[Rfam]
Rfam assigns this 65-nucleotide RNA from Shouchella clausii to the family "Bacillaceae-1 RNA".
RNA sequence: AGCUAAGGAUCUUCGGUUAAGGUCGCGACGUCCUGUCGCAACACCGAAGCCAACACAUCCGUGUG
Numbered sequence: 001a002g003c004u005a006a007g008g009a010u011c012u013u014c015g016g017u018u019a020a021g022g023u024c025g026c027g028a029c030g031u032c033c034u035g036u037c038g039c040a041a042c043a044c045c046g047a048a049g050c051c052a053a054c055a056c057a058u059c060c061g062u063g064u065g
Base pairs, nucleotide, nucleotide: 011049012048013047014046015045016044017043025039026038027037028036029035053064054063055062056061
Dot-bracket structure: ..........(((((((.......(((((.....)))))...)))))))...((((....)))).

The family's RNA type in Rfam is small RNA. It is one of the family's seed sequences. The base pairs follow the family's consensus structure, which is taken from published work. NCBI's taxonomy places the organism under Bacteria, Bacillati, Bacilli, Bacillaceae, Shouchella clausii.